[Rfam]
RNA: RNase MRP
RNA sequence: CCCUCGCUCAAUAGAUCGCUAUUCGAAGCUCACAAACAGAGACACUGCGAUUUAUCGCAGCGUCUCAAUCUCUUUAUUGCUUUGGGAGAAAGUCCCCGGACGUCUUCGUUUCGACGAAGUUUGCGGAAACGCGCCGCCAUAGAAGCACUGCGGUUGACCUUUGCGCCCAGGCCCUCGCCCUGCACUGGCCCUGCCCUCCGCUACAUCUGCUUGCCAACGGCCUUUGUCUCAACGGUCUUUGCCGCCCUCGGUCCUCUUGGAUGAAGAUAUGAGUCCGCUGUCGAGGUGCGGUGAGUUCUGGACGGACGGGUUGUCUGGCGGGUGGAUGGUGGGCAGACGCUUAGUGCUCGUGCAUGUGGCAUCGGGUCGCUUAGGAUUUGUUGUCGAGAUUGACAGGUAUGCGAUUGCCUAGCGAAAGCUUGGUUACUCAAUGGGGCUCAUUCUUGAUGCGAGG
Numbered sequence: 001c002c003c004u005c006g007c008u009c010a011a012u013a014g015a016u017c018g019c020u021a022u023u024c025g026a027a028g029c030u031c032a033c034a035a036a037c038a039g040a041g042a043c044a045c046u047g048c049g050a051u052u053u054a055u056c057g058c059a060g061c062g063u064c065u066c067a068a069u070c071u072c073u074u075u076a077u078u079g080c081u082u083u084g085g086g087a088g089a090a091a092g093u094c095c096c097c098g099g100a101c102g103u104c105u106u107c108g109u110u111u112c113g114a115c116g117a118a119g120u121u122u123g124c125g126g127a128a129a130c131g132c133g134c135c136g137c138c139a140u141a142g143a144a145g146c147a148c149u150g151c152g153g154u155u156g157a158c159c160u161u162u163g164c165g166c167c168c169a170g171g172c173c174c175u176c177g178c179c180c181u182g183c184a185c186u187g188g189c190c191c192u193g194c195c196c197u198c199c200g201c202u203a204c205a206u207c208u209g210c211u212u213g214c215c216a217a218c219g220g221c222c223u224u225u226g227u228c229u230c231a232a233c234g235g236u237c238u239u240u241g242c243c244g245c246c247c248u249c250g251g252u253c254c255u256c257u258u259g260g261a262u263g264a265a266g267a268u269a270u271g272a273g274u275c276c277g278c279u280g281u282c283g284a285g286g287u288g289c290g291g292u293g294a295g296u297u298c299u300g301g302a303c304g305g306a307c308g309g310g311u312u313g314u315c316u317g318g319c320g321g322g323u324g325g326a327u328g329g330u331g332g333g334c335a336g337a338c339g340c341u342u343a344g345u346g347c348u349c350g351u352g353c354a355u356g357u358g359g360c361a362u363c364g365g366g367u368c369g370c371u372u373a374g375g376a377u378u379u380g381u382u383g384u385c386g387a388g389a390u391u392g393a394c395a396g397g398u399a400u401g402c403g404a405u406u407g408c409c410u411a412g413c414g415a416a417a418g419c420u421u422g423g424u425u426a427c428u429c430a431a432u433g434g435g436g437c438u439c440a441u442u443c444u445u446g447a448u449g450c451g452a453g454g
Stems, first nucleotide, its partner, number of pairs: 002454006009446003014406006023086001024084006039066005045060006091438002094436004104119006336378002340374002343371003346367004350362004408423002411420003
Dot-bracket structure: .((((((.(((..((((((...(((((((.........(((((.((((((....)))))).)))))............)))))).)....[[.[[[[......((((((....))))))........................................................................................................................................................................................................................((..((.(((((((((((.....)))).)))).))).))..))......................)))))).((.(((....))).)).........]]]]]].....)))..))))))